The record is a 67-nucleotide RNA from Molossus molossus, which matches "Selenocysteine insertion sequence 1" in Rfam. For this family Rfam cites "A novel RNA structural motif in the selenocysteine insertion element of eukaryotic selenoprotein mRNAs" (Walczak et al., RNA, 1996). The source organism's lineage runs through Eukaryota, Teleostomi, Mammalia, Boreoeutheria and Molossus. Gene Ontology term of the family: selenocysteine incorporation.
RNA sequence: GACGCUUCAUGAUGGGAUGGACUGAAAUGCCUCUUGGAUGCCGGGUCUGUCCCUGAUGUUCUGCGGC
Dot-bracket structure: (.(((........((((((((((......(.(.....).)...)))))))))).........))).)